The record is a 106-nucleotide RNA sequence from Ramlibacter aurantiacus, which matches "Glycine riboswitch aptamer" in Rfam. A search with the family's covariance model found it, with a score of 62 bits. Gene Ontology term of the family: glycine biosynthetic process. NCBI's taxonomy places the organism under Bacteria, Pseudomonadati, Pseudomonadota, Comamonadaceae, Ramlibacter.
RNA sequence: CGUUUCCUUGCUGGAGAGAGGUGGUUUCGCAAGGAGCCAUCCACCGAAGGAGCAAACCCCGUGACCCGGGGUGAAUCUCUCAGGUAAAGCGGACAGCAGGGCCCGC
Dot-bracket structure: .....((((((((......((((((..........)))))).(((((..(((...((((((.....))))))....))))).)))........)))))))).....